Shown here is a 69-nucleotide RNA sequence from Nyctereutes procyonoides, a member of the family "Small nucleolar RNA SNORD123".
The family's consensus secondary structure was predicted with WAR.
The source organism's lineage runs through Eukaryota, Metazoa, Chordata, Sarcopterygii and Nyctereutes.
Its family is annotated with nucleolus and RNA processing in the Gene Ontology.
By type it is a C/D-box small nucleolar RNA.

[Rfam]
RNA sequence: GGUGAAAAUGAUGAACCCUGGGGCACUGAUCACGUGACUUGAAAAAUGCCAUCCAUUUCCUGAUUCACC
Numbered sequence: 001g002g003u004g005a006a007a008a009u010g011a012u013g014a015a016c017c018c019u020g021g022g023g024c025a026c027u028g029a030u031c032a033c034g035u036g037a038c039u040u041g042a043a044a045a046a047u048g049c050c051a052u053c054c055a056u057u058u059c060c061u062g063a064u065u066c067a068c069c
Stems, first nucleotide, its partner, number of pairs: 001069006